[Rfam]
RNA sequence: CCUCUUUGGAAGGAUAGCAGCAUGAACCUGUCUCACUGCAGAAUUAUUUUGAGACAGGCUUAUGCUGCUAUCCUUCAAAAGAAC
Numbered sequence: 001c002c003u004c005u006u007u008g009g010a011a012g013g014a015u016a017g018c019a020g021c022a023u024g025a026a027c028c029u030g031u032c033u034c035a036c037u038g039c040a041g042a043a044u045u046a047u048u049u050u051g052a053g054a055c056a057g058g059c060u061u062a063u064g065c066u067g068c069u070a071u072c073c074u075u076c077a078a079a080a081g082a083a084c
Stems, first nucleotide, its partner, number of pairs: 003082005009076017027058009